[Rfam]
Lysine riboswitch aptamer: a 184-nucleotide RNA sequence from Limosilactobacillus ingluviei. Taxonomically the source falls in Limosilactobacillus (Bacteria, Bacillati, Lactobacillales, Lactobacillaceae). Pairs were carried over by alignment from the consensus structure, which is taken from published work.
RNA sequence: GUAAAUCGAAGAGGCGCAGCCAACAAGAGUAACGAUUUGGAGUUUUUCUCAACGAGGAAGAAUUGCGAAAGGGGAGGUUGCCGAAGCGAUCAUGGAUGAGAAUUAAAUGAUCAGCUGGGUCGGCGCAGAAGAUGCGUCGGACUGUCGUAGGACAAUAAGAGCCUGCGGUGCGCUAUCGACUUUA
Numbered sequence: 001g002u003a004a005a006u007c008g009a010a011g012a013g014g015c016g017c018a019g020c021c022a023a024c025a026a027g028a029g030u031a032a033c034g035a036u037u038u039g040g041a042g043u044u045u046u047u048c049u050c051a052a053c054g055a056g057g058a059a060g061a062a063u064u065g066c067g068a069a070a071g072g073g074g075a076g077g078u079u080g081c082c083g084a085a086g087c088g089a090u091c092a093u094g095g096a097u098g099a100g101a102a103u104u105a106a107a108u109g110a111u112c113a114g115c116u117g118g119g120u121c122g123g124c125g126c127a128g129a130a131g132a133u134g135c136g137u138c139g140g141a142c143u144g145u146c147g148u149a150g151g152a153c154a155a156u157a158a159g160a161g162c163c164u165g166c167g168g169u170g171c172g173c174u175a176u177c178g179a180c181u182u183u184a
Base pairs, nucleotide, nucleotide: 006179007178008177009176010174011173016081017080018079019078020077021076024073033065034064035063036062037061038060085116086115087114088112089111090110091109092108093107117143118142120140121139122138123137124136125135126134127133145168146167147166148165149164150163151162